Lysine riboswitch aptamer: a 186-nucleotide RNA from Dorea longicatena. Taxonomically the source falls in Dorea (Bacteria, Bacillati, Bacillota, Clostridia). Riboswitches are metabolite binding domains within certain messenger RNAs that serve as precision sensors for their corresponding targets. Allosteric rearrangement of mRNA structure is mediated by ligand binding, and this results in modulation of gene expression. This family includes riboswitches that sense lysine in a number of genes involved in lysine metabolism, including lysC.
RNA sequence: AGACUAGAUAGAGGCGCAGGUUUCAUCAGUAAGGCAGAACAACAGAUAAAGGGAAAUCAUUUCUGCCUGAAAGGGAAAACUGCCGAAGGAAGAUAUCAUCCCUUAUUAUAUUCGAGAUAUACUUCCUGGGACGCAGCAGAAUAUGCUGCGGACUGUCACUUCAGUAAGUGGAGCGCUAUCGGAGUA
Numbered sequence: 001a002g003a004c005u006a007g008a009u010a011g012a013g014g015c016g017c018a019g020g021u022u023u024c025a026u027c028a029g030u031a032a033g034g035c036a037g038a039a040c041a042a043c044a045g046a047u048a049a050a051g052g053g054a055a056a057u058c059a060u061u062u063c064u065g066c067c068u069g070a071a072a073g074g075g076a077a078a079a080c081u082g083c084c085g086a087a088g089g090a091a092g093a094u095a096u097c098a099u100c101c102c103u104u105a106u107u108a109u110a111u112u113c114g115a116g117a118u119a120u121a122c123u124u125c126c127u128g129g130g131a132c133g134c135a136g137c138a139g140a141a142u143a144u145g146c147u148g149c150g151g152a153c154u155g156u157c158a159c160u161u162c163a164g165u166a167a168g169u170g171g172a173g174c175g176c177u178a179u180c181g182g183a184g185u186a
Base pairs, nucleotide, nucleotide: 007180008179009178010177011176016083017082018081019080021078022077023076024075032068033067034066035065036064037063038062039061087127088126089125090124091123092122094119095118096117097116128154129153132150133149134148135147136146137145138144156171157170158169159168160167161166